Annotation:
The record is a 425-nucleotide part of an RNA from Bilobella aurantiaca, which matches "Eukaryotic large subunit ribosomal RNA" in Rfam. The family's consensus secondary structure is taken from published work. Rfam's curators put it in the seed alignment.
RNA sequence: CGGGCAGAACUUGCAAGUAUUGUCAGGAGAUUCAGACUUGAGUUUAGUAGUUGAGUACUUUUGUUAAGUUGUUCAUUCGUGAACUGACUGAUUGAUGUACUUUAUUCUGCUGAAUAUGUGUCGCACUUCUCCUUGUCAUCCGGGUUGCAUGCAACUGAUUUUGGUAGUUUAGGUUUUGAGAAUCUGUGAGUCAUUCAUUCGUGAUUGAUUUAAGUCUUGAAUUUCCAACUACUGAUGCGGUUGUAAGAAAAUAGCGAACAAGCGUUUGACGCGGUCAAUUAUUUUUACGAGUCGUGUACGUAUUUUAUAUGGACGAGCAAUCGUAGUAUAUUUUAUGUGCUGGUUGUCAGUAGGAGUAAUUUUGGCAUUGUUCUGUAUUGCAAUCUAAAGCAUGCGUGGUCUGCCUGUCCCGUCUUGAAACACGG
Numbered sequence: 001c002g003g004g005c006a007g008a009a010c011u012u013g014c015a016a017g018u019a020u021u022g023u024c025a026g027g028a029g030a031u032u033c034a035g036a037c038u039u040g041a042g043u044u045u046a047g048u049a050g051u052u053g054a055g056u057a058c059u060u061u062u063g064u065u066a067a068g069u070u071g072u073u074c075a076u077u078c079g080u081g082a083a084c085u086g087a088c089u090g091a092u093u094g095a096u097g098u099a100c101u102u103u104a105u106u107c108u109g110c111u112g113a114a115u116a117u118g119u120g121u122c123g124c125a126c127u128u129c130u131c132c133u134u135g136u137c138a139u140c141c142g143g144g145u146u147g148c149a150u151g152c153a154a155c156u157g158a159u160u161u162u163g164g165u166a167g168u169u170u171a172g173g174u175u176u177u178g179a180g181a182a183u184c185u186g187u188g189a190g191u192c193a194u195u196c197a198u199u200c201g202u203g204a205u206u207g208a209u210u211u212a213a214g215u216c217u218u219g220a221a222u223u224u225c226c227a228a229c230u231a232c233u234g235a236u237g238c239g240g241u242u243g244u245a246a247g248a249a250a251a252u253a254g255c256g257a258a259c260a261a262g263c264g265u266u267u268g269a270c271g272c273g274g275u276c277a278a279u280u281a282u283u284u285u286u287a288c289g290a291g292u293c294g295u296g297u298a299c300g301u302a303u304u305u306u307a308u309a310u311g312g313a314c315g316a317g318c319a320a321u322c323g324u325a326g327u328a329u330a331u332u333u334u335a336u337g338u339g340c341u342g343g344u345u346g347u348c349a350g351u352a353g354g355a356g357u358a359a360u361u362u363u364g365g366c367a368u369u370g371u372u373c374u375g376u377a378u379u380g381c382a383a384u385c386u387a388a389a390g391c392a393u394g395c396g397u398g399g400u401c402u403g404c405c406u407g408u409c410c411c412g413u414c415u416u417g418a419a420a421c422a423c424g425g
Stems, first nucleotide, its partner, number of pairs: 001407008010398001012396001017155001020154004026148001159389003163385003410425004